A member of the RNA family "Plant signal recognition particle RNA" from Ipomoea nil, 308 nucleotides long.
The family's consensus secondary structure is taken from published work.
The match comes from Rfam's covariance-model search (130 bits).
NCBI's taxonomy places the organism under Eukaryota, Viridiplantae, Magnoliopsida, Gunneridae, Ipomoea.
It is annotated as a non-coding RNA gene.
RNA sequence: GCUGGGCUUGGUAGCGUGAGCCUGUAACCUGAGUGGGAGCAUUAAGAUGGUGGAACAAUUGGCCUUGCCCUGAAGGUUGGGCUUCGUGUGCUAUCUCUUCUGGCCUACCCGUUCCAAGUGGUGAGUUGACUGAGGAGUCUCAGUGAAGGCCAAGGCUUCUCUGUCUUUAGAUCGGAGGGUACCGCGUUAGGCUGGCUUCACAGAGCAGCGAAAACCUCCUCCUCUUUGCAGGAGACGUUAUGCCAUGGAACCGUGUUCACCAUGAAUGGUGAACACGGUUCCAACGGUGUUAGUGCACCGUUAUCUUC
Number, nucleotide and partner (000 for none) at each position: 001g040002c039003u038004g023005g022006g021007c020008u019009u018010g017011g000012u000013a000014g000015c000016g000017u010018g009019a008020g007021c006022c005023u004024g000025u000026a000027a000028c037029c036030u035031g000032a000033g000034u000035g030036g029037g028038a003039g002040c001041a000042u000043u000044a307045a306046g305047a304048u303049g302050g301051u300052g299053g298054a000055a000056c295057a294058a000059u284060u283061g282062g279063c278064c277065u000066u275067g274068c000069c000070c000071u271072g270073a000074a000075g267076g000077u265078u264079g258080g257081g256082c255083u000084u253085c000086g000087u000088g252089u000090g251091c000092u249093a000094u248095c247096u000097c000098u000099u000100c000101u245102g244103g243104c242105c000106u240107a239108c000109c000110c237111g000112u000113u235114c234115c000116a000117a000118g229119u228120g227121g226122u000123g224124a223125g222126u000127u000128g165129a164130c163131u000132g161133a160134g159135g158136a157137g156138u155139c154140u153141c000142a000143g150144u149145g000146a000147a000148g000149g144150c143151c000152a000153a140154g139155g138156c137157u136158u135159c134160u133161c132162u000163g130164u129165c128166u000167u000168u000169a000170g000171a000172u000173c000174g219175g218176a217177g216178g215179g000180u000181a000182c000183c000184g000185c210186g209187u208188u000189a000190g000191g000192c203193u202194g201195g000196c000197u000198u000199c000200a000201c194202a193203g192204a000205g000206c000207a000208g187209c186210g185211a000212a000213a000214a000215c178216c177217u176218c175219c174220u000221c000222c125223u124224c123225u000226u121227u120228g119229c118230a000231g000232g000233a000234g114235a113236c000237g110238u000239u107240a106241u000242g104243c103244c102245a101246u000247g095248g094249a092250a000251c090252c088253g084254u000255g082256u081257u080258c079259a000260c000261c000262a000263u000264g078265a077266a000267u075268g000269g000270u072271g071272a000273a000274c067275a066276c000277g064278g063279u062280u000281c000282c061283a060284a059285c000286g000287g000288u000289g000290u000291u000292a000293g000294u057295g056296c000297a000298c053299c052300g051301u050302u049303a048304u047305c046306u045307u044308c000